mir-544 microRNA precursor family: a 96-nucleotide RNA from Equus asinus.
[Rfam]
RNA sequence: ACCACCUGGGGAUCUCGUUAAAUGCAGAUUCUGAUUCAGCGGGCUGAGGCGGGGCCAAAGAUUCUGCAUUUCCAACAAGCUCCCAGGUGAUGCUGA
Number, nucleotide and partner (000 for none) at each position: 001a000002c000003c089004a088005c087006c000007u000008g000009g083010g082011g081012a000013u000014c079015u078016c000017g076018u075019u074020a071021a070022a069023u000024g067025c066026a065027g064028a063029u000030u061031c060032u059033g000034a000035u000036u000037c000038a000039g000040c000041g000042g000043g000044c000045u000046g000047a000048g000049g000050c000051g000052g000053g000054g000055c000056c000057a000058a000059a032060g031061a030062u000063u028064c027065u026066g025067c024068a000069u022070u021071u020072c000073c000074a019075a018076c017077a000078a015079g014080c000081u011082c010083c009084c000085a000086g000087g005088u004089g003090a000091u000092g000093c000094u000095g000096a000
On this family, see Chiang et al., Genes Dev 2010: "Mammalian microRNAs: experimental evaluation of novel and previously annotated genes". Pairs were carried over by alignment from the consensus structure, which was predicted with RNAalifold. Gene Ontology terms of the family: miRNA-mediated post-transcriptional gene silencing and RISC complex. Rfam 15.1 lists 10,750 matches to the family in 132 species. Lineage of the source: Eukaryota > Opisthokonta > Sarcopterygii > Amniota > Equus.